[Rfam]
RNA sequence: CACCCAGUUUCGGGGACCUUGGUACAGGCAGGCCGAGAAUCCCCUCUUUACACCCGGGGUGCUUGAUGCGGAUCGCGUCGCGCCCCACACCCGUUUCGGGAACCUCGGUACAGGCAGGCCGGGGAUUCCCUCUUUAACACCGAAGCCUUGCAAGGCUUCACCCCGUUUUGGGAGCCCUGGUACAGGCAGGCCGGGAACUCCCUCUUUUAUUCCUCGCGC
Numbered sequence: 001c002a003c004c005c006a007g008u009u010u011c012g013g014g015g016a017c018c019u020u021g022g023u024a025c026a027g028g029c030a031g032g033c034c035g036a037g038a039a040u041c042c043c044c045u046c047u048u049u050a051c052a053c054c055c056g057g058g059g060u061g062c063u064u065g066a067u068g069c070g071g072a073u074c075g076c077g078u079c080g081c082g083c084c085c086c087a088c089a090c091c092c093g094u095u096u097c098g099g100g101a102a103c104c105u106c107g108g109u110a111c112a113g114g115c116a117g118g119c120c121g122g123g124g125a126u127u128c129c130c131u132c133u134u135u136a137a138c139a140c141c142g143a144a145g146c147c148u149u150g151c152a153a154g155g156c157u158u159c160a161c162c163c164c165g166u167u168u169u170g171g172g173a174g175c176c177c178u179g180g181u182a183c184a185g186g187c188a189g190g191c192c193g194g195g196a197a198c199u200c201c202c203u204c205u206u207u208u209a210u211u212c213c214u215c216g217c218g219c
Stems, first nucleotide, its partner, number of pairs: 012044005018037006056086007098130005104123006145156004170203003174199001176195006
This 219-nucleotide sequence from Pseudomonas salomonii belongs to the Rfam family "Nitrogen regulated small RNA". A reference for the family is Wenner et al. (2014), "NrsZ: a novel, processed, nitrogen-dependent, small non-coding RNA that regulates Pseudomonas aeruginosa PAO1 virulence", Environ Microbiol. The match comes from Rfam's covariance-model search (152 bits).